[Rfam]
RNA sequence: UAGGUGAAACCCGAAAAACCUGAUAAGAGUAGGGA
Numbered sequence: 001u002a003g004g005u006g007a008a009a010c011c012c013g014a015a016a017a018a019c020c021u022g023a024u025a026a027g028a029g030u031a032g033g034g035a
Stems, first nucleotide, its partner, number of pairs: 002021004010034003
RNA: DUF805b RNA
Organism: Niabella ginsenosidivorans